[Rfam]
RNA sequence: AACAACACUAUCGAUGAAUGAAUUCAUCUGCGAGAUGAUGUGUUUUACCUAGGACGAGGACAUAGCAUCAUAUUACUAGCCAUCGCCCGAAAUUAAUAGGAUAUCACGUCCUCAUCCUAGAUGAAACAACCACGUCAUCUCAUGGGUGAAUCCUUUUAUCGAUAAUGUGGUU
Numbered sequence: 001a002a003c004a005a006c007a008c009u010a011u012c013g014a015u016g017a018a019u020g021a022a023u024u025c026a027u028c029u030g031c032g033a034g035a036u037g038a039u040g041u042g043u044u045u046u047a048c049c050u051a052g053g054a055c056g057a058g059g060a061c062a063u064a065g066c067a068u069c070a071u072a073u074u075a076c077u078a079g080c081c082a083u084c085g086c087c088c089g090a091a092a093u094u095a096a097u098a099g100g101a102u103a104u105c106a107c108g109u110c111c112u113c114a115u116c117c118u119a120g121a122u123g124a125a126a127c128a129a130c131c132a133c134g135u136c137a138u139c140u141c142a143u144g145g146g147u148g149a150a151u152c153c154u155u156u157u158a159u160c161g162a163u164a165a166u167g168u169g170g171u172u
Stems, first nucleotide, its partner, number of pairs: 001172003005168003009164007017156002022151007030143001032141002035138005041132001042127003047122001050119002053116002059110003065104001067102003071098005082093002

The family of this 172-nucleotide RNA sequence from Oryza meridionalis is "MIR807 microRNA precursor family". Gene Ontology terms of the family: RISC complex and miRNA-mediated post-transcriptional gene silencing. A search with the family's covariance model found it, with a score of 156 bits. The family has 30 seed sequences and 1,514 matches in Rfam 15.1. The literature on the family includes a 2006 paper in FEBS Lett by Luo et al., "Rice embryogenic calli express a unique set of microRNAs, suggesting regulatory roles of microRNAs in plant post-embryogenic development".